The family of this 359-nucleotide part of an RNA from Salinigranum rubrum is "Archaeal small subunit ribosomal RNA".
It is one of the family's seed sequences.
On this family, see Yusupov et al., Science 2001: "Crystal structure of the ribosome at 5.5 A resolution".
RNA sequence: GGCCUAAAGCGUCCGUAGCUGGCCACGCAAGUCCGUCGGGAAAUCCACUAGCUCAACUAGUGGGCGUCCGGCGGAAACUGCGUGGCUUGGGACCGGAAGGCUCGAGGGGUACGUCCGGGGUAGGAGUGAAAUCCCGUAAUCCUGGACGGACCGCCGAUGGCGAAAGCACCUCGAGAGAACGGAUCCGACAGUGAGGGACGAAAGCUGGGGUCUCGAACCGGAUUAGAUACCCGGGUAGUCCCAGCCGUAAACGAUGCCAGUUAGGUGUGGCAGAGGCUACGAGCCUCUGCUGUGCCGUAGGGAAGCCGAGAAACUGGCCGCCUGGGAAGUACGUCCGCAAGGAUGAAACUUAAAGGAAU
Numbered sequence: 001g002g003c004c005u006a007a008a009g010c011g012u013c014c015g016u017a018g019c020u021g022g023c024c025a026c027g028c029a030a031g032u033c034c035g036u037c038g039g040g041a042a043a044u045c046c047a048c049u050a051g052c053u054c055a056a057c058u059a060g061u062g063g064g065c066g067u068c069c070g071g072c073g074g075a076a077a078c079u080g081c082g083u084g085g086c087u088u089g090g091g092a093c094c095g096g097a098a099g100g101c102u103c104g105a106g107g108g109g110u111a112c113g114u115c116c117g118g119g120g121u122a123g124g125a126g127u128g129a130a131a132u133c134c135c136g137u138a139a140u141c142c143u144g145g146a147c148g149g150a151c152c153g154c155c156g157a158u159g160g161c162g163a164a165a166g167c168a169c170c171u172c173g174a175g176a177g178a179a180c181g182g183a184u185c186c187g188a189c190a191g192u193g194a195g196g197g198a199c200g201a202a203a204g205c206u207g208g209g210g211u212c213u214c215g216a217a218c219c220g221g222a223u224u225a226g227a228u229a230c231c232c233g234g235g236u237a238g239u240c241c242c243a244g245c246c247g248u249a250a251a252c253g254a255u256g257c258c259a260g261u262u263a264g265g266u267g268u269g270g271c272a273g274a275g276g277c278u279a280c281g282a283g284c285c286u287c288u289g290c291u292g293u294g295c296c297g298u299a300g301g302g303a304a305g306c307c308g309a310g311a312a313a314c315u316g317g318c319c320g321c322c323u324g325g326g327a328a329g330u331a332c333g334u335c336c337g338c339a340a341g342g343a344u345g346a347a348a349c350u351u352a353a354a355g356g357a358a359u
Base pairs, nucleotide, nucleotide: 001322002321003320009319011199012198013197014196016193018192019191020190022086023085024084025083026082027081028080030079031078032075033074034073035072036071037070038069039068040067045063046062047061048060049059050058051057090186091185092184093182094181095180101175102174103173104172105171106170107169108152109151112148113147114146115145116144117143118142119141123134124133125132160167161166204245205244206243207242208241209240214238218234219233220232221231256318257317258316259315260314261313264296265295266294267293268292269291270290271289272288273287274286275285276284277283300307301306324351325350326349333344334343335342336341